[Rfam]
RNA: Z30 small nucleolar RNA
Organism: Acanthosepion pharaonis
RNA sequence: GUGCUAUGAUGAUUUAUUUUACUGACCUUUUAUCACCUGUCCUUGCUGUUUUUUUUAAGCAUAUUCCAGGUGUUGAUCAGGAGAUGAUCAGUAUUAAUCUUCUCUCUGAGCCA
Numbered sequence: 001g002u003g004c005u006a007u008g009a010u011g012a013u014u015u016a017u018u019u020u021a022c023u024g025a026c027c028u029u030u031u032a033u034c035a036c037c038u039g040u041c042c043u044u045g046c047u048g049u050u051u052u053u054u055u056u057a058a059g060c061a062u063a064u065u066c067c068a069g070g071u072g073u074u075g076a077u078c079a080g081g082a083g084a085u086g087a088u089c090a091g092u093a094u095u096a097a098u099c100u101u102c103u104c105u106c107u108g109a110g111c112c113a
Stems, first nucleotide, its partner, number of pairs: 001112001003111002035071004